[Rfam]
This 94-nucleotide RNA sequence from Eptesicus fuscus belongs to the Rfam family "mir-9261 microRNA precursor family". Lineage of the source: Eukaryota > Teleostomi > Chiroptera > Yangochiroptera > Eptesicus. Pairs were carried over by alignment from the consensus structure, which was predicted with RNAalifold. It is one of the family's seed sequences.

RNA sequence: AACCAUUUGUCCCACGUCCCAUGGCAUUUUAAAAAAAUCUUUCCAAAAAUAGGGACUUUUUUAAAACGCCGUGGGACGCGGGACAAAUGGUUAA
Numbered sequence: 001a002a003c004c005a006u007u008u009g010u011c012c013c014a015c016g017u018c019c020c021a022u023g024g025c026a027u028u029u030u031a032a033a034a035a036a037a038u039c040u041u042u043c044c045a046a047a048a049a050u051a052g053g054g055a056c057u058u059u060u061u062u063a064a065a066a067c068g069c070c071g072u073g074g075g076a077c078g079c080g081g082g083a084c085a086a087a088u089g090g091u092u093a094a
Base pairs, nucleotide, nucleotide: 001092002091003090004089005088006087007086008085009084010083011082012081013080015078016077017076018075019074020073021072022071023070024069025068027066028065029064030063031062032061033060034059035058